This 93-nucleotide RNA sequence from an Anaerolineales bacterium belongs to the Rfam family "Selenocysteine transfer RNA".
[Rfam]
RNA sequence: GGGAGUGGUUAGGUCCCGGUGGGCUUCCUGGUCUUCAACACCAGUGGCGGGUCGCGUUGCGAGCCGCGGUGGGUUCGUCUCCCAUCCACUCCC
Number, nucleotide and partner (000 for none) at each position: 001g093002g092003g091004a090005g089006u088007g087008g086009u000010u000011a026012g025013g024014u023015c022016c021017c000018g000019g000020u000021g016022g015023g014024c013025u012026u011027c000028c044029u043030g042031g041032u040033c000034u000035u000036c000037a000038a000039c000040a032041c031042c030043a029044g028045u000046g000047g067048c066049g065050g064051g000052u000053c000054g000055c000056g000057u000058u000059g000060c000061g000062a000063g000064c050065c049066g048067c047068g000069g000070u084071g083072g082073g081074u000075u000076c000077g000078u000079c000080u000081c073082c072083c071084a070085u000086c008087c007088a006089c005090u004091c003092c002093c001